Shown here is a 287-nucleotide RNA sequence from Octodon degus, a member of the family "Mason-Pfizer monkey virus packaging signal".
The family has 9 seed sequences and 2,921 matches in Rfam 15.1.
Rfam classes the family as a cis-regulatory element.
Taxonomically the source falls in Octodon (Eukaryota, Deuterostomia, Gnathostomata, Amniota).
Rfam describes the family as follows. This family represents a group of sequences that are related to the Mason-Pfizer monkey virus (MPMV) packaging signal.
[Rfam]
RNA sequence: UGGCGCCCAACGUGGAGCACCUGGUAUGGAGGGUUCAGUGACGGAACCGUCCGAGAGAGCUGUCAAGAGAGAAAGUAAAAGAGGCCCGUGCCGGCCUCAGGUGCCUGCUGCGACAUCUGAACCUUGGUGAGCGGACGGCACCCCUUUCCCCUUCCCUUUGGCAAUGGGACAGGCAUUAAGUGAACAUGAGAUAUUUGUAGAAAGUUUGAGUAAAGCAUUAAAGGCGCGAGGAGUAAAAAUUAAAAUUAAGGAUUUGUGUCAAUAUUUUGAAUAUAUUAAACAAGUUU
Numbered sequence: 001u002g003g004c005g006c007c008c009a010a011c012g013u014g015g016a017g018c019a020c021c022u023g024g025u026a027u028g029g030a031g032g033g034u035u036c037a038g039u040g041a042c043g044g045a046a047c048c049g050u051c052c053g054a055g056a057g058a059g060c061u062g063u064c065a066a067g068a069g070a071g072a073a074a075g076u077a078a079a080a081g082a083g084g085c086c087c088g089u090g091c092c093g094g095c096c097u098c099a100g101g102u103g104c105c106u107g108c109u110g111c112g113a114c115a116u117c118u119g120a121a122c123c124u125u126g127g128u129g130a131g132c133g134g135a136c137g138g139c140a141c142c143c144c145u146u147u148c149c150c151c152u153u154c155c156c157u158u159u160g161g162c163a164a165u166g167g168g169a170c171a172g173g174c175a176u177u178a179a180g181u182g183a184a185c186a187u188g189a190g191a192u193a194u195u196u197g198u199a200g201a202a203a204g205u206u207u208g209a210g211u212a213a214a215g216c217a218u219u220a221a222a223g224g225c226g227c228g229a230g231g232a233g234u235a236a237a238a239a240u241u242a243a244a245a246u247u248a249a250g251g252a253u254u255u256g257u258g259u260c261a262a263u264a265u266u267u268u269g270a271a272u273a274u275a276u277u278a279a280a281c282a283a284g285u286u287u
Base pairs, nucleotide, nucleotide: 006032007031012027013026014025033047034046035045036044084128085127086126088123092119093118096112098110099109100108136172138170141168142167143166177220178219179218180216181215227269228268229267230266231265233263234262237255238254239253240252241251